The family of this 79-nucleotide RNA sequence from Triticum urartu is "Small nucleolar RNA SNORD34". Lineage of the source: Eukaryota > Embryophyta > Magnoliopsida > Liliopsida > Triticum. Its Rfam clan is "SNORD34 clan". About the family: snoRNA U34 is found in intron 5 of the ribosomal protein L13a gene in humans.
RNA sequence: UCAUACCUAUGAUGAGUUGCGAACUGUAUUGCCUACAUUGUUUGAUACUAUGAGAAGCUUAUGCAACUUCUGAGGAUGA
Numbered sequence: 001u002c003a004u005a006c007c008u009a010u011g012a013u014g015a016g017u018u019g020c021g022a023a024c025u026g027u028a029u030u031g032c033c034u035a036c037a038u039u040g041u042u043u044g045a046u047a048c049u050a051u052g053a054g055a056a057g058c059u060u061a062u063g064c065a066a067c068u069u070c071u072g073a074g075g076a077u078g079a
Stems, first nucleotide, its partner, number of pairs: 001079002004076001006075002